[Rfam]
RNA sequence: UCCACGCCUGAGUUGGACAGGGGAUCUAGACAGUCUUGCCGAGUACGCUGCCAGAUCUAACUUUCCAGCUCACGCGUGGA
Numbered sequence: 001u002c003c004a005c006g007c008c009u010g011a012g013u014u015g016g017a018c019a020g021g022g023g024a025u026c027u028a029g030a031c032a033g034u035c036u037u038g039c040c041g042a043g044u045a046c047g048c049u050g051c052c053a054g055a056u057c058u059a060a061c062u063u064u065c066c067a068g069c070u071c072a073c074g075c076g077u078g079g080a
Stems, first nucleotide, its partner, number of pairs: 001080007009072009019062002022058006029051001031050004